[Rfam]
RNA sequence: GGCCUGCUUCUUGCUGAUCCGCCGGUAGGGUAACCAACGGCGGUUGCCUCCACCCACGACAAAGACGUCGC
Number, nucleotide and partner (000 for none) at each position: 001g000002g000003c000004c000005u000006g000007c000008u000009u000010c000011u000012u000013g000014c000015u000016g000017a000018u000019c000020c000021g000022c000023c000024g000025g000026u000027a000028g000029g048030g047031u046032a045033a044034c043035c042036a000037a000038c000039g000040g000041c000042g035043g034044u033045u032046g031047c030048c029049u000050c000051c000052a000053c000054c000055c000056a000057c000058g000059a000060c000061a000062a000063a000064g000065a000066c000067g000068u000069c000070g000071c000
The family of this 71-nucleotide RNA from Zestomonas thermotolerans is "narK RNA". Taxonomically the source falls in Zestomonas thermotolerans (Bacteria, Pseudomonadota, Pseudomonadaceae, Zestomonas). The base pairs follow the family's consensus structure, which is taken from published work.